[Rfam]
RNA sequence: GACAGCUCGAAAGCUACGAAGCUCAGCACGCACAAGACGCGUCUUUCACGCGUCUUUUCUUCUGAGCGGGAAGGUCUGAGCCUCACAGUCAUCCUCGAUCGUCUCUAGCUGGGACCAGUCUUCACGGACUGAGCGACGUACCAGAAAAGCAGUUGUCAAUUGCGCAAUGGUUGACUUUGAAAAGCGUCGCGGUGACUGGGUGGGUGCUUCCUUUCCACUGUACCCAAUUCAGUGUUCUCUAUC
Numbered sequence: 001g002a003c004a005g006c007u008c009g010a011a012a013g014c015u016a017c018g019a020a021g022c023u024c025a026g027c028a029c030g031c032a033c034a035a036g037a038c039g040c041g042u043c044u045u046u047c048a049c050g051c052g053u054c055u056u057u058u059c060u061u062c063u064g065a066g067c068g069g070g071a072a073g074g075u076c077u078g079a080g081c082c083u084c085a086c087a088g089u090c091a092u093c094c095u096c097g098a099u100c101g102u103c104u105c106u107a108g109c110u111g112g113g114a115c116c117a118g119u120c121u122u123c124a125c126g127g128a129c130u131g132a133g134c135g136a137c138g139u140a141c142c143a144g145a146a147a148a149g150c151a152g153u154u155g156u157c158a159a160u161u162g163c164g165c166a167a168u169g170g171u172u173g174a175c176u177u178u179g180a181a182a183a184g185c186g187u188c189g190c191g192g193u194g195a196c197u198g199g200g201u202g203g204g205u206g207c208u209u210c211c212u213u214u215c216c217a218c219u220g221u222a223c224c225c226a227a228u229u230c231a232g233u234g235u236u237c238u239c240u241a242u243c
Stems, first nucleotide, its partner, number of pairs: 001243002004240001009237003021067005035055008076232005087197004101115005116131006133190007152175003
Dot-bracket structure: ((.(....(((.........(((((.........((((((((.....)))))))).......)))))........(((((......((((..........(((((.....)))))((((((....)))))).(((((((............(((..................)))........)))))))...))))..............................)))))..)))..).))